Shown here is a 204-nucleotide RNA, a member of the family "Group II catalytic intron D1-D4-3". It is one of the family's seed sequences.
[Rfam]
RNA sequence: UCCACCGCGAGAUGGAAUCUGAAGGAAGCCGGAGGCAAAGUUCCGGGCCGACGAACAGAAACCGCAUAUAAGGCGUUGCAAGGCGGAUAAGUUUCCAAAACAAAACAAAGUCCCAAAAGACCGGCCUGUUAUAAUGACCUCCGGUCUUACUGCCCGAACCUUGCGAUGUAAAUGCGGCGGCUAUAAGGAAUGAAGGUUACCGAC
Numbered sequence: 001u002c003c004a005c006c007g008c009g010a011g012a013u014g015g016a017a018u019c020u021g022a023a024g025g026a027a028g029c030c031g032g033a034g035g036c037a038a039a040g041u042u043c044c045g046g047g048c049c050g051a052c053g054a055a056c057a058g059a060a061a062c063c064g065c066a067u068a069u070a071a072g073g074c075g076u077u078g079c080a081a082g083g084c085g086g087a088u089a090a091g092u093u094u095c096c097a098a099a100a101c102a103a104a105a106c107a108a109a110g111u112c113c114c115a116a117a118a119g120a121c122c123g124g125c126c127u128g129u130u131a132u133a134a135u136g137a138c139c140u141c142c143g144g145u146c147u148u149a150c151u152g153c154c155c156g157a158a159c160c161u162u163g164c165g166a167u168g169u170a171a172a173u174g175c176g177g178c179g180g181c182u183a184u185a186a187g188g189a190a191u192g193a194a195g196g197u198u199a200c201c202g203a204c
Stems, first nucleotide, its partner, number of pairs: 001016004006011001028204001030202003035197002040191005046182005062177006073169003077165007085113004091106004